RNA sequence: AAGGAGAAAUGAAAUCAUACUAAUAUAAUCUAAGCGAUAUGGGCUUUAAGUUUCUACCGAACCACCUUAAAUGGUUUGACUAUUAGUUGAUAGAAGAUCCUC
Numbered sequence: 001a002a003g004g005a006g007a008a009a010u011g012a013a014a015u016c017a018u019a020c021u022a023a024u025a026u027a028a029u030c031u032a033a034g035c036g037a038u039a040u041g042g043g044c045u046u047u048a049a050g051u052u053u054c055u056a057c058c059g060a061a062c063c064a065c066c067u068u069a070a071a072u073g074g075u076u077u078g079a080c081u082a083u084u085a086g087u088u089g090a091u092a093g094a095a096g097a098u099c100c101u102c
Base pairs, nucleotide, nucleotide: 019087020086021085022084023083024082025081029049032046033045034044035043058078059077060076061075062074063073064072

Source information
The family of this 102-nucleotide sequence from Isobaculum melis is "Purine riboswitch aptamer". The literature on the family includes a 2003 paper in Cell by Mandal et al., "Riboswitches Control Fundamental Biochemical Pathways in Bacillus subtilis and Other Bacteria".